[Rfam]
RNA sequence: UCACCUGGUUAGUUUUGCUGGUUUGCUUUCAGCUUUAACAGAUGUUCGCUGUGCAAAUCCAUGCAAAACUGACUAGCUGA
Numbered sequence: 001u002c003a004c005c006u007g008g009u010u011a012g013u014u015u016u017g018c019u020g021g022u023u024u025g026c027u028u029u030c031a032g033c034u035u036u037a038a039c040a041g042a043u044g045u046u047c048g049c050u051g052u053g054c055a056a057a058u059c060c061a062u063g064c065a066a067a068a069c070u071g072a073c074u075a076g077c078u079g080a
Stems, first nucleotide, its partner, number of pairs: 003078001005076014020060002022057005028051001031050003
Shown here is an 80-nucleotide RNA from Scophthalmus maximus, a member of the family "mir-19 microRNA precursor family".
The family's consensus secondary structure was predicted with RNAalifold.
Rfam links the family to the GO terms miRNA-mediated post-transcriptional gene silencing and RISC complex.
For this family Rfam cites "Identification of novel genes coding for small expressed RNAs" (Lagos-Quintana et al., Science, 2001).